[Rfam]
RNA sequence: CUCUUAUUCAGAGUAGGUGGAGGGACUGGCCCGAUGAAGCCCGGCAACCGGCAUUUUUGCACGGUGCUAACUCCUGCAGAGAAAUCUGGGAGAUAAGAG
Dot-bracket structure: ((((((((....(..(((...(((.[.[[)))......))))((((.((.(((....)))..))))))...(]].]((((....))))..)))))))))